[Rfam]
Nucleotides: 215
Base pairs, nucleotide, nucleotide: 013061014060015059016058017057018056062098063097064096065095067093068092070090071089072088073087075084076083077082116209117208118207119206120205121204122203123202124201127199128198
Number, partner (000 for none) and nucleotide at each position: 001000a002000c003000g004000c005000g006000g007000a008000a009000a010000g011000g012000a013061g014060g015059u016058g017057g018056u019000c020000c021000g022000a023000a024000u025000a026000a027000u028000g029000g030000a031000u032000a033000g034000u035000c036000a037000u038000a039000g040000u041000c042000g043000g044000g045000c046000u047000a048000g049000c050000g051000a052000g053000g054000u055000g056018g057017u058016u059015g060014u061013c062098c063097g064096c065095u066000a067093g068092c069000a070090c071089u072088g073087c074000g075084g076083a077082c078000u079000g080000u081000u082077g083076u084075c085000u086000c087073g088072u089071g090070g091000c092068g093067c094000a095065a096064g097063c098062g099000a100000a101000u102000c103000c104000g105000a106000g107000g108000c109000a110000a111000c112000c113000a114000c115000c116209g117208g118207g119206g120205c121204c122203c123202c124201g125000u126000g127199g128198c129000a130000g131000c132000c133000g134000g135000a136000g137000g138000g139000c140000g141000g142000g143000a144000u145000g146000a147000g148000g149000c150000a151000u152000c153000c154000c155000g156000a157000c158000c159000a160000u161000g162000g163000u164000c165000c166000a167000u168000c169000c170000g171000g172000c173000c174000c175000g176000c177000c178000u179000g180000c181000u182000c183000a184000g185000c186000a187000g188000g189000c190000g191000g192000a193000g194000u195000g196000u197000c198128g199127c200000c201124c202123g203122g204121g205120g206119c207118c208117c209116u210000c211000u212000u213000u214000g215000u
This 215-nucleotide RNA from Nonomuraea sp. WAC 01424 belongs to the Rfam family "Actinobacteria sRNA Ms_IGR-5". The family's RNA type in Rfam is small RNA.